[Rfam]
RNA sequence: UGCUGACCAGUCUUCGCCUCCCUCCCUCCCAGGGGUCCCGGGAGCCAGGGAAGAAGCUGCCGCAGAAGCUGAAGCA
Numbered sequence: 001u002g003c004u005g006a007c008c009a010g011u012c013u014u015c016g017c018c019u020c021c022c023u024c025c026c027u028c029c030c031a032g033g034g035g036u037c038c039c040g041g042g043a044g045c046c047a048g049g050g051a052a053g054a055a056g057c058u059g060c061c062g063c064a065g066a067a068g069c070u071g072a073a074g075c076a
Stems, first nucleotide, its partner, number of pairs: 001076004
Dot-bracket structure: ((((....................................................................))))